[Rfam]
RNA: Small nucleolar RNA SNORD74
RNA sequence: GUGGCCGCCGGUGAUGAAGCCUGUGUUGGUAGGGACAUCUGAGGGUGUUGAUGAAUGCCAACGGCUCUGACGGCGGCGC
Numbered sequence: 001g002u003g004g005c006c007g008c009c010g011g012u013g014a015u016g017a018a019g020c021c022u023g024u025g026u027u028g029g030u031a032g033g034g035a036c037a038u039c040u041g042a043g044g045g046u047g048u049u050g051a052u053g054a055a056u057g058c059c060a061a062c063g064g065c066u067c068u069g070a071c072g073g074c075g076g077c078g079c
Stems, first nucleotide, its partner, number of pairs: 001079003005075001